mir-30 microRNA precursor family: a 77-nucleotide sequence from Megalops atlanticus. The source organism's lineage runs through Eukaryota, Opisthokonta, Vertebrata, Elopocephala and Megalops.
RNA sequence: UCCGUGGCUGUAAACAUCACCGACUGGAAGCUGUGCUGUAACAUCUGAGCUUUCAGUCAGAUGUUUGCUGCCACUGG
Numbered sequence: 001u002c003c004g005u006g007g008c009u010g011u012a013a014a015c016a017u018c019a020c021c022g023a024c025u026g027g028a029a030g031c032u033g034u035g036c037u038g039u040a041a042c043a044u045c046u047g048a049g050c051u052u053u054c055a056g057u058c059a060g061a062u063g064u065u066u067g068c069u070g071c072c073a074c075u076g077g
Stems, first nucleotide, its partner, number of pairs: 002076001004074003008070001010068009023057010